[Rfam]
RNA: U4atac minor spliceosomal RNA
Organism: Clarias magur
RNA sequence: AUCUUCCUUGUCUUGGGGUGGAUUGGGCUGUUCAAUGAACGUCUAGUGAGAACAUCCCUGCUAACACCUAAACCAACACAACCAGCAUCACCUGAGCAGUUUCUGUUCAGGCUAUGGUGCAAUUUUUGGAACC
Numbered sequence: 001a002u003c004u005u006c007c008u009u010g011u012c013u014u015g016g017g018g019u020g021g022a023u024u025g026g027g028c029u030g031u032u033c034a035a036u037g038a039a040c041g042u043c044u045a046g047u048g049a050g051a052a053c054a055u056c057c058c059u060g061c062u063a064a065c066a067c068c069u070a071a072a073c074c075a076a077c078a079c080a081a082c083c084a085g086c087a088u089c090a091c092c093u094g095a096g097c098a099g100u101u102u103c104u105g106u107u108c109a110g111g112c113u114a115u116g117g118u119g120c121a122a123u124u125u126u127u128g129g130a131a132c133c
Stems, first nucleotide, its partner, number of pairs: 006018004021061001023060001025058001027056001029054005039047002085120006091111009